[Rfam]
RNA: DUF805b RNA
RNA sequence: UGAGCGGAAGCCGAAAAGCUCUGAUCGAGUAGGCG
Dot-bracket structure: .((((....[[[.....))))..........]]].